Na+ riboswitch aptamer (DUF1646): a 48-nucleotide sequence from Carnobacterium sp. AT7.
RNA sequence: GGUUGGGCAUUUGCUUUCAAGGAUAAAUUCUUCAAGGGGUGAGAAGAA
Numbered sequence: 001g002g003u004u005g006g007g008c009a010u011u012u013g014c015u016u017u018c019a020a021g022g023a024u025a026a027a028u029u030c031u032u033c034a035a036g037g038g039g040u041g042a043g044a045a046g047a048a
Base pairs, nucleotide, nucleotide: 003020004019005018006015007014008013028048029047030046031045032044033043
Dot-bracket structure: ..((((((....)))..))).......((((((.........))))))
It is one of the family's seed sequences. Its family is annotated with sodium ion binding and regulation of gene expression in the Gene Ontology. Taxonomically the source falls in Carnobacterium (Bacteria, Bacillati, Bacilli, Carnobacteriaceae).